Notes: The family of this 69-nucleotide RNA from Pleuronectes platessa is "mir-33 microRNA precursor family". A reference for the family is Li et al. (2009), "Direct sequencing and expression analysis of a large number of miRNAs in Aedes aegypti and a multi-species survey of novel mosquito miRNAs", BMC Genomics. NCBI's taxonomy places the organism under Eukaryota, Eumetazoa, Actinopterygii, Pleuronectiformes, Pleuronectes.
RNA sequence: CUGUAGUGCAUUGUAGUUGCAUUGCAUGUGUGUCUCAGUAGAGUGCAAUGUACCUGCUAUGCAACACAG
Dot-bracket structure: ((((.((((((.((((..(.(((((((...............))))))).)..)))).))))).)))))